[Rfam]
RNA sequence: UCGACUGUACUCGAACAGGAUCACUUAUGUAGUGAUUUCCUUCCGUUCACAAAAGUACUCUUGACAAAACCCUAAACCGUGAUGAGGAGAUGUAUACCCCACCCUAAUGGAGGUGUAGUCAGUACAGUCAUGUACUCGACUUCGAUGAUCCAUCCCAUAUGGGUUUUGGGGUGUGGGUAUUGCUGAACGGUU
Numbered sequence: 001u002c003g004a005c006u007g008u009a010c011u012c013g014a015a016c017a018g019g020a021u022c023a024c025u026u027a028u029g030u031a032g033u034g035a036u037u038u039c040c041u042u043c044c045g046u047u048c049a050c051a052a053a054a055g056u057a058c059u060c061u062u063g064a065c066a067a068a069a070c071c072c073u074a075a076a077c078c079g080u081g082a083u084g085a086g087g088a089g090a091u092g093u094a095u096a097c098c099c100c101a102c103c104c105u106a107a108u109g110g111a112g113g114u115g116u117a118g119u120c121a122g123u124a125c126a127g128u129c130a131u132g133u134a135c136u137c138g139a140c141u142u143c144g145a146u147g148a149u150c151c152a153u154c155c156c157a158u159a160u161g162g163g164u165u166u167u168g169g170g171g172u173g174u175g176g177g178u179a180u181u182g183c184u185g186a187a188c189g190g191u192u
Stems, first nucleotide, its partner, number of pairs: 003040001006035001008034004017028001019026002046069002052062002076191005095179005100173006108152004118140003123134001154163003